[Rfam]
RNA: Archaeal large subunit ribosomal RNA, nucleotides 2046 to 2420
Organism: Aeropyrum pernix
RNA sequence: GGGGGCUAACCCGGGCCAGGGAACUCGGCAAAUUGGCCCCGUAACUUCGGGAGAAGGGGUGCCUGCGGUCCUGGGGCCCGAACCCUGGGACCGCAGGUCGCAGUGCCUAGGGGGGCCUGACUGUUUAACAAAAACAUAGCUCCCCGCUAGCCCGAAAAGGGUGUGUACGGGGGGUGAGCCCUGGCCACUGGCGGUCCGUGAAACCGGGGUACAACCCGGCGAAGCGCCGCUGAAGGCCGGGAGUAACCCUGACUCUCUUAAGGUAGCCAAAUGCCUUGCCGGGUAAGUUCCGGCGCGCAUGAACGGGUCAACGAGGUCCCCACUGUCCUGGCCCGGGGCCCCGUGAACCCCCUGAGCCGGUGCACAGUCCGGCAU
Number, nucleotide and partner (000 for none) at each position: 001g342002g341003g340004g339005g000006c000007u000008a000009a000010c337011c336012c335013g334014g333015g332016c331017c330018a000019g328020g327021g326022a000023a000024c000025u000026c000027g000028g000029c000030a000031a000032a000033u000034u000035g000036g060037c059038c058039c057040c056041g000042u000043a000044a000045c050046u000047u000048c000049g000050g045051g000052a000053g000054a000055a000056g040057g039058g038059g037060u036061g098062c097063c096064u095065g094066c093067g092068g091069u090070c089071c088072u087073g086074g085075g084076g083077c000078c000079c000080g000081a000082a000083c076084c075085c074086u073087g072088g071089g070090a069091c068092c067093g066094c065095a064096g063097g062098u061099c103100g000101c000102a000103g099104u000105g000106c000107c000108u000109a000110g000111g321112g320113g319114g318115g317116c316117c315118u313119g312120a000121c000122u136123g135124u134125u000126u000127a000128a000129c000130a000131a000132a000133a000134a124135c123136a122137u000138a000139g175140c174141u173142c172143c171144c170145c169146g168147c165148u000149a000150g162151c161152c160153c159154g000155a000156a000157a000158a000159g153160g152161g151162u150163g000164u000165g147166u000167a000168c146169g145170g144171g143172g142173g141174g140175u139176g000177a000178g308179c307180c306181c305182u000183g238184g237185c236186c000187a000188c235189u234190g231191g230192c229193g228194g227195u000196c000197c226198g225199u224200g000201a000202a000203a000204c219205c218206g217207g216208g215209g000210u000211a000212c000213a000214a000215c208216c207217c206218g205219g204220c000221g000222a000223a000224g199225c198226g197227c194228c193229g192230c191231u190232g000233a000234a189235g188236g185237c184238c183239g257240g256241g255242a254243g253244u252245a000246a000247c000248c000249c000250u000251g000252a244253c243254u242255c241256u240257c239258u262259u000260a000261a000262g258263g000264u000265a000266g000267c000268c000269a000270a000271a000272u000273g000274c000275c000276u000277u000278g294279c293280c292281g291282g290283g289284u000285a000286a000287g000288u000289u283290c282291c281292g280293g279294c278295g000296c000297g000298c000299a000300u000301g000302a000303a000304c000305g181306g180307g179308u178309c000310a000311a000312c119313g118314a000315g117316g116317u115318c114319c113320c112321c111322a000323c000324u000325g000326u021327c020328c019329u000330g017331g016332c015333c014334c013335g012336g011337g010338g000339c004340c003341c002342c001343g000344u000345g000346a000347a000348c000349c000350c000351c000352c000353u000354g000355a000356g373357c372358c371359g370360g369361u000362g000363c000364a000365c000366a000367g000368u000369c360370c359371g358372g357373c356374a000375u000